[Rfam]
RNA: Hepatitis C virus (HCV) cis-acting replication element (CRE)
RNA sequence: CCACUGGCGGAUGCAUCCAGACUGGACUUGUCCAGCUGGUUCACCGCUGGAUACAGCGGGGGGGACAUAUAUCACAGCGUGUCCUAUGCCCGGCCCCGUUGGAUCUUCUGGUGCCUACUCCUGCUUUCUGCAGGGGUAGGCAUCUUUUUGCUCCCCAACCGGUAGGUGGGGAGCUUA
Numbered sequence: 001c002c003a004c005u006g007g008c009g010g011a012u013g014c015a016u017c018c019a020g021a022c023u024g025g026a027c028u029u030g031u032c033c034a035g036c037u038g039g040u041u042c043a044c045c046g047c048u049g050g051a052u053a054c055a056g057c058g059g060g061g062g063g064g065a066c067a068u069a070u071a072u073c074a075c076a077g078c079g080u081g082u083c084c085u086a087u088g089c090c091c092g093g094c095c096c097c098g099u100u101g102g103a104u105c106u107u108c109u110g111g112u113g114c115c116u117a118c119u120c121c122u123g124c125u126u127u128c129u130g131c132a133g134g135g136g137u138a139g140g141c142a143u144c145u146u147u148u149u150g151c152u153c154c155c156c157a158a159c160c161g162g163u164a165g166g167u168g169g170g171g172a173g174c175u176u177a
Stems, first nucleotide, its partner, number of pairs: 008049003013044001018039001020037001022035005055100007062085006112142013150174008